Description:
Rfam assigns this 87-nucleotide sequence from Rickettsia conorii to the family "Bacterial small signal recognition particle RNA". The sequence is in the family's curated seed alignment. The family is grouped with related families in Rfam's "SRP clan".
[Rfam]
RNA sequence: GCUAGUAGUGGGCAUUGUACCUGUUUAGUCGGUCAGGUCUGAAAGGAAGCAGCCAGAGUGGGAUUCGAUGGGUCAUUACUAGCAUUA
Numbered sequence: 001g002c003u004a005g006u007a008g009u010g011g012g013c014a015u016u017g018u019a020c021c022u023g024u025u026u027a028g029u030c031g032g033u034c035a036g037g038u039c040u041g042a043a044a045g046g047a048a049g050c051a052g053c054c055a056g057a058g059u060g061g062g063a064u065u066c067g068a069u070g071g072g073u074c075a076u077u078a079c080u081a082g083c084a085u086u087a
Stems, first nucleotide, its partner, number of pairs: 001083010013070005020062006029056001031054003038047003